[Rfam]
RNA sequence: GAGCUGUUGGGGGAUGAGAGCUUUGAGUGAUCCAUCGACUGACACGUGAAGAUGAGACUUCAAGCACUGACAACAGCCU
Numbered sequence: 001g002a003g004c005u006g007u008u009g010g011g012g013g014a015u016g017a018g019a020g021c022u023u024u025g026a027g028u029g030a031u032c033c034a035u036c037g038a039c040u041g042a043c044a045c046g047u048g049a050a051g052a053u054g055a056g057a058c059u060u061c062a063a064g065c066a067c068u069g070a071c072a073a074c075a076g077c078c079u
Base pairs, nucleotide, nucleotide: 003077004076005075006074007073008072009068010067012033013032014031015030017028035055036054037053039051
Shown here is a 79-nucleotide RNA sequence from Synaphobranchus kaupii, a member of the family "Small nucleolar RNA SNORD71".
On this family, see Huttenhofer et al., EMBO J 2001: "RNomics: an experimental approach that identifies 201 candidates for novel, small, non-messenger RNAs in mouse".
Pairs were carried over by alignment from the consensus structure, which was predicted with RNAalifold.
Taxonomically the source falls in Synaphobranchus (Eukaryota, Bilateria, Euteleostomi, Neopterygii).
snoRNA HBII-239 belongs to the family of C/D snoRNAs.It is the human orthologue of the mouse MBII-239 described and is predicted to guide 2'O-ribose methylation of 5.8S rRNA on residue U14.